[Rfam]
RNA sequence: CCAGCUGAGUAGCGUUGCACCUCUGUUUGUUUUACAGGGCUAGGCUCAGCUGAGGUUGCUUAUGAAUCCAACCACGCUAGUACAAU
Numbered sequence: 001c002c003a004g005c006u007g008a009g010u011a012g013c014g015u016u017g018c019a020c021c022u023c024u025g026u027u028u029g030u031u032u033u034a035c036a037g038g039g040c041u042a043g044g045c046u047c048a049g050c051u052g053a054g055g056u057u058g059c060u061u062a063u064g065a066a067u068c069c070a071a072c073c074a075c076g077c078u079a080g081u082a083c084a085a086u
Stems, first nucleotide, its partner, number of pairs: 002052007021039006